[Rfam]
RNA sequence: GAACUGAAUAUGGGGUGCUGCGUGUCCGCGGCUGAGAUGAAACGAAUCGACGUUUCCGUCCCUUAGACCUGAUCUGGGUAAUGCCAGCGUAGGAAACUUUUAACAAGCAAAA
Numbered sequence: 001g002a003a004c005u006g007a008a009u010a011u012g013g014g015g016u017g018c019u020g021c022g023u024g025u026c027c028g029c030g031g032c033u034g035a036g037a038u039g040a041a042a043c044g045a046a047u048c049g050a051c052g053u054u055u056c057c058g059u060c061c062c063u064u065a066g067a068c069c070u071g072a073u074c075u076g077g078g079u080a081a082u083g084c085c086a087g088c089g090u091a092g093g094a095a096a097c098u099u100u101u102a103a104c105a106a107g108c109a110a111a112a
Base pairs, nucleotide, nucleotide: 006100007099008098012062013061014060017032018031019030020029021028039056040055041054042053043052068093069092070091071090074087075086076085077084
A member of the RNA family "TPP riboswitch aptamer (THI element)" from Ruminococcaceae bacterium BL-6, 112 nucleotides long.
Lineage of the source: Bacteria > Bacillati > Bacillota > Eubacteriales > Oscillospiraceae.
Vitamin B(1) in its active form thiamin pyrophosphate (TPP) is an essential coenzyme that is synthesised by coupling of pyrimidine and thiazole moieties in bacteria.